[Rfam]
RNA sequence: UGCAUAUGAUGGUUUUUCUCACGAUGGUCUUCCAAGCUUUUCCAGCUCUGACGACAUUGCCGAAUGGCAUUACUGAUGCAGUUUU
Number, nucleotide and partner (000 for none) at each position: 001u080002g079003c078004a077005u000006a000007u000008g000009a000010u000011g000012g000013u000014u000015u000016u000017u000018c000019u000020c000021a000022c000023g000024a000025u000026g000027g000028u000029c000030u000031u000032c000033c000034a000035a000036g000037c000038u000039u000040u000041u000042c000043c000044a000045g000046c000047u000048c000049u000050g000051a000052c000053g000054a000055c000056a000057u000058u000059g000060c000061c000062g000063a000064a000065u000066g000067g000068c000069a000070u000071u000072a000073c000074u000075g000076a000077u004078g003079c002080a001081g000082u000083u000084u000085u000
Notes: This 85-nucleotide RNA from Chanos chanos belongs to the Rfam family "Small nucleolar RNA SNORD35". On this family, see Nicoloso et al., J Mol Biol 1996: "Intron-encoded, antisense small nucleolar RNAs: the characterization of nine novel species points to their direct role as guides for the 2'-O-ribose methylation of rRNAs". Rfam's curators write: U35 is a C/D box snoRNA located in intron 6 of ribosomal protein L13A and intron 3 of ribosomal protein S11 in humans and at homologous positions in mouse and chicken ribosomal protein genes. U35 guides the methylation of 2'-O-ribose sites in 28S rRNA. Its Rfam clan is "SNORD35 clan". The base pairs follow the family's consensus structure, which was predicted with PFOLD. A search with the family's covariance model found it, with a score of 60 bits.